[Rfam]
RNA sequence: CGUCCCACCUCGGGGAGCCUUGAUUGGCUGAGACGCUGACGCGGACCCGUUGAACCUGACCCGGCUAACACCGGCGUAGGGAAGGUCUGGAUCAGCCUC
Dot-bracket structure: ......((((((((..(((......)))......((....))...)))).....((((..((((......))))..))))..)))).............

Notes
Rfam assigns this 99-nucleotide sequence from Sedimentitalea nanhaiensis to the family "TPP riboswitch aptamer (THI element)". Pairs were carried over by alignment from the consensus structure, which is taken from published work. Taxonomically the source falls in Sedimentitalea (Bacteria, Pseudomonadati, Rhodobacterales, Paracoccaceae).